About this RNA: Shown here is a 75-nucleotide sequence from Tetracentron sinense, a member of the family "Small nucleolar RNA Z105". A search with the family's covariance model found it, with a score of 47 bits. NCBI's taxonomy places the organism under Eukaryota, Tracheophyta, Euphyllophyta, Trochodendrales, Tetracentron. Its family is annotated with RNA processing and nucleolus in the Gene Ontology. The literature on the family includes a 2003 paper in Nucleic Acids Res by Chen et al., "The high diversity of snoRNAs in plants: identification and comparative study of 120 snoRNA genes from Oryza sativa".
[Rfam]
RNA sequence: CGAGCAUGAUGAUGAUAAAGACUAAUAGACCGAUAGAUUUGAUGAUCGGAAAAUAAAACCUCCUACUCAUUCUGA
Numbered sequence: 001c002g003a004g005c006a007u008g009a010u011g012a013u014g015a016u017a018a019a020g021a022c023u024a025a026u027a028g029a030c031c032g033a034u035a036g037a038u039u040u041g042a043u044g045a046u047c048g049g050a051a052a053a054u055a056a057a058a059c060c061u062c063c064u065a066c067u068c069a070u071u072c073u074g075a
Stems, first nucleotide, its partner, number of pairs: 006070004026052001030041001